[Rfam]
RNA sequence: AGAGUCCUGAUGUGUUCGUUGUAUAACCUGAAGUUUUGACCGAACAUUGAGUACUUCGGGAAUCCGGAGUUCCCAGGCUGCGCAAACGCCCCUAUGGAGUGGGGACUUGCAGGAGUGUGGGACAGGAUGCCCACCUGCCGAGAGCGGGUUCAAAACGAAGGCGCCAAAGCGACGGCACAAUUGGGACUCUU
Numbered sequence: 001a002g003a004g005u006c007c008u009g010a011u012g013u014g015u016u017c018g019u020u021g022u023a024u025a026a027c028c029u030g031a032a033g034u035u036u037u038g039a040c041c042g043a044a045c046a047u048u049g050a051g052u053a054c055u056u057c058g059g060g061a062a063u064c065c066g067g068a069g070u071u072c073c074c075a076g077g078c079u080g081c082g083c084a085a086a087c088g089c090c091c092c093u094a095u096g097g098a099g100u101g102g103g104g105a106c107u108u109g110c111a112g113g114a115g116u117g118u119g120g121g122a123c124a125g126g127a128u129g130c131c132c133a134c135c136u137g138c139c140g141a142g143a144g145c146g147g148g149u150u151c152a153a154a155a156c157g158a159a160g161g162c163g164c165c166a167a168a169g170c171g172a173c174g175g176c177a178c179a180a181u182u183g184g185g186a187c188u189c190u191u
Stems, first nucleotide, its partner, number of pairs: 002189010012178004017174003033156003037152003040148002058132003062128004067123001072121004077116002084108002089104004
This 191-nucleotide RNA sequence from Mesobacillus foraminis belongs to the Rfam family "6S / SsrS RNA". The match comes from Rfam's covariance-model search (84 bits). From the family's description: E. coli 6S RNA was the first non coding RNA to be sequenced, but its function was unknown until recently. Lineage of the source: Bacteria > Bacillota > Bacilli > Bacillaceae > Mesobacillus. The family's RNA type in Rfam is non-coding RNA gene.